RNA sequence: AGAAUUCCGCCCCAGUAACCGCUAACCACGGGCUGGGUAUCGAGCCUUGCAGGCGAACUGGUAACAGUGCGCUUGAUGCGUAGGCACGAAAGCAGGCGAGGAGCCAUGGUAACGGAUCAUGCCGACCGUGAAGGGGUAGAGUCCCGAAAUGACCGCAUUGGAAAGGGCCGAUGGUAUCAAGACGCCAGCAGGCAACAGCGCGACCUUGGUUAUGGUGAGAAUGUCGCGACCACCCGGGAUCGUAGGCCG
Numbered sequence: 001a002g003a004a005u006u007c008c009g010c011c012c013c014a015g016u017a018a019c020c021g022c023u024a025a026c027c028a029c030g031g032g033c034u035g036g037g038u039a040u041c042g043a044g045c046c047u048u049g050c051a052g053g054c055g056a057a058c059u060g061g062u063a064a065c066a067g068u069g070c071g072c073u074u075g076a077u078g079c080g081u082a083g084g085c086a087c088g089a090a091a092g093c094a095g096g097c098g099a100g101g102a103g104c105c106a107u108g109g110u111a112a113c114g115g116a117u118c119a120u121g122c123c124g125a126c127c128g129u130g131a132a133g134g135g136g137u138a139g140a141g142u143c144c145c146g147a148a149a150u151g152a153c154c155g156c157a158u159u160g161g162a163a164a165g166g167g168c169c170g171a172u173g174g175u176a177u178c179a180a181g182a183c184g185c186c187a188g189c190a191g192g193c194a195a196c197a198g199c200g201c202g203a204c205c206u207u208g209g210u211u212a213u214g215g216u217g218a219g220a221a222u223g224u225c226g227c228g229a230c231c232a233c234c235c236g237g238g239a240u241c242g243u244a245g246g247c248c249g
Stems, first nucleotide, its partner, number of pairs: 012036004019031003023218001025216002038091001040089002044085004048080002050075006057068004138243001139241001141240006160234002165231002167193003172187004199228006206221002
Group II catalytic intron D1-D4-6: a 249-nucleotide RNA sequence from Methylocaldum marinum.
The family has 174 seed sequences and 1,617 matches in Rfam 15.1.
Rfam's curators write: Group II introns are found in rRNA, tRNA and mRNA of organelles in fungi, plants and protists, and also in mRNA in bacteria.